[Rfam]
RNA sequence: CUAAACUAUUUUUAAUCAUUCACACAUAUCGUCACAUUCUCCGGGGUGCUCCUUAGCUUUCGCAAAGCUUUAGUGGGGUCGGCUGAAUGGGAUAUGUGGACGCCUAAC
Numbered sequence: 001c002u003a004a005a006c007u008a009u010u011u012u013u014a015a016u017c018a019u020u021c022a023c024a025c026a027u028a029u030c031g032u033c034a035c036a037u038u039c040u041c042c043g044g045g046g047u048g049c050u051c052c053u054u055a056g057c058u059u060u061c062g063c064a065a066a067g068c069u070u071u072a073g074u075g076g077g078g079u080c081g082g083c084u085g086a087a088u089g090g091g092a093u094a095u096g097u098g099g100a101c102g103c104c105u106a107a108c
Base pairs, nucleotide, nucleotide: 023098024097025096026095027094028093029092030091035089036088037087038086039085041082042081043080048079049078050077051076052075
RNA: t44 RNA
Organism: Photobacterium damselae